[Rfam]
RNA sequence: CAGUGUUAUCAAGUGUAACAGCAACUCCAUGUGGAAUAAAGUCUCUUUCCAGUGGAGGUGGUGUUACUUUUGAAAGC
Numbered sequence: 001c002a003g004u005g006u007u008a009u010c011a012a013g014u015g016u017a018a019c020a021g022c023a024a025c026u027c028c029a030u031g032u033g034g035a036a037u038a039a040a041g042u043c044u045c046u047u048u049c050c051a052g053u054g055g056a057g058g059u060g061g062u063g064u065u066a067c068u069u070u071u072g073a074a075a076g077c
Stems, first nucleotide, its partner, number of pairs: 009073003015067006022060001025057006032051003
RNA: mir-194 microRNA precursor family